[Rfam]
RNA sequence: GGAGCGGAUAGCCGCUUCGCGCGGCAUUGACGGGCCGGCGCGGAGAGGAAAGUCCGAACACCACAAGGCAGCGUGCCGCAAAAAGCUUGCGGAGCGGUGCGGGGUAACCUGCGCCGGAUGGAAAGUGUCACAGAAAACAAACCGCCGCCGUCGGAGCGCCCCCGCAAGGGAGCGGGCCGUGGCGGUAAGGGUGAAAAGGCGGGGUAAAAGCCCACCGCCCGUGGAGGUAACUCCCGGGGCACGAUAAACCCCACGCGGUGCAAGACCAAACAGGGGCCCACGGCCGCCUGCCAGCACGCGCGCCUACCGCCCCGGCGGAGAGCACGCGUCGGCCCCGGGUAUCGGUCGCACCAGCUCGCUCUCGCCUUCGGGCAGGGCGCGCGGCGUCUCCCCCCAUCGGGGAGGCGAGAUGAAUGGCUAUCCAGCGCCAUGCGACUGGCCGCAGCCCCUCCAGGCGGCGGUCAGCCUCCUGCCGCGGACAAAAUUCGGCUUACAGCUCCACCA
Dot-bracket structure: (((((((((((((.((((((((...............))))))))....[[[.[[[[[((((.....[..((((((((((.......)))))(.(((((((((....)))))))))..)((...(((((............((((((((((...........................))))))))..)).......((.(((.......))).))(((((.((((....)))))))).)..)))..)))))))))))))...((((......(((.((.......................]...........................)).))).......)))).......((..............................................))...........)))))))..............................................................]]]]]]]].).)))))....
Numbered sequence: 001g002g003a004g005c006g007g008a009u010a011g012c013c014g015c016u017u018c019g020c021g022c023g024g025c026a027u028u029g030a031c032g033g034g035c036c037g038g039c040g041c042g043g044a045g046a047g048g049a050a051a052g053u054c055c056g057a058a059c060a061c062c063a064c065a066a067g068g069c070a071g072c073g074u075g076c077c078g079c080a081a082a083a084a085g086c087u088u089g090c091g092g093a094g095c096g097g098u099g100c101g102g103g104g105u106a107a108c109c110u111g112c113g114c115c116g117g118a119u120g121g122a123a124a125g126u127g128u129c130a131c132a133g134a135a136a137a138c139a140a141a142c143c144g145c146c147g148c149c150g151u152c153g154g155a156g157c158g159c160c161c162c163c164g165c166a167a168g169g170g171a172g173c174g175g176g177c178c179g180u181g182g183c184g185g186u187a188a189g190g191g192u193g194a195a196a197a198g199g200c201g202g203g204g205u206a207a208a209a210g211c212c213c214a215c216c217g218c219c220c221g222u223g224g225a226g227g228u229a230a231c232u233c234c235c236g237g238g239g240c241a242c243g244a245u246a247a248a249c250c251c252c253a254c255g256c257g258g259u260g261c262a263a264g265a266c267c268a269a270a271c272a273g274g275g276g277c278c279c280a281c282g283g284c285c286g287c288c289u290g291c292c293a294g295c296a297c298g299c300g301c302g303c304c305u306a307c308c309g310c311c312c313c314g315g316c317g318g319a320g321a322g323c324a325c326g327c328g329u330c331g332g333c334c335c336c337g338g339g340u341a342u343c344g345g346u347c348g349c350a351c352c353a354g355c356u357c358g359c360u361c362u363c364g365c366c367u368u369c370g371g372g373c374a375g376g377g378c379g380c381g382c383g384g385c386g387u388c389u390c391c392c393c394c395c396a397u398c399g400g401g402g403a404g405g406c407g408a409g410a411u412g413a414a415u416g417g418c419u420a421u422c423c424a425g426c427g428c429c430a431u432g433c434g435a436c437u438g439g440c441c442g443c444a445g446c447c448c449c450u451c452c453a454g455g456c457g458g459c460g461g462u463c464a465g466c467c468u469c470c471u472g473c474c475g476c477g478g479a480c481a482a483a484a485u486u487c488g489g490c491u492u493a494c495a496g497c498u499c500c501a502c503c504a
Stems, first nucleotide, its partner, number of pairs: 001500005006494001007422007015045008050492003054489005059260004068303001071256005076092005093119001095116009120251002125249002127245003142190002144186008198216002201213003217240001218238004223234004264347004274336003278332002355404002